[Rfam]
RNA sequence: GUCUCGGUGGCGCAAUGGUAGCGCGUUGGACUUCUACUGUUUUCAAAACCGUUUGGUAAUUGAUUUACUUUGCACAAAAACGGUUAUCCAAAGGCUGCGGGUUCGAGCCCCGCCCGAGAUG
Numbered sequence: 001g002u003c004u005c006g007g008u009g010g011c012g013c014a015a016u017g018g019u020a021g022c023g024c025g026u027u028g029g030a031c032u033u034c035u036a037c038u039g040u041u042u043u044c045a046a047a048a049c050c051g052u053u054u055g056g057u058a059a060u061u062g063a064u065u066u067a068c069u070u071u072g073c074a075c076a077a078a079a080a081c082g083g084u085u086a087u088c089c090a091a092a093g094g095c096u097g098c099g100g101g102u103u104c105g106a107g108c109c110c111c112g113c114c115c116g117a118g119a120u121g
Stems, first nucleotide, its partner, number of pairs: 001120007010024004026091005097113005
A member of the RNA family "tRNA" from Decorospora gaudefroyi, 121 nucleotides long. The organism belongs to Decorospora, within Eukaryota. Its family is annotated with triplet codon-amino acid adaptor activity in the Gene Ontology. It scores 58 bits against the family's covariance model. By type it is a transfer RNA.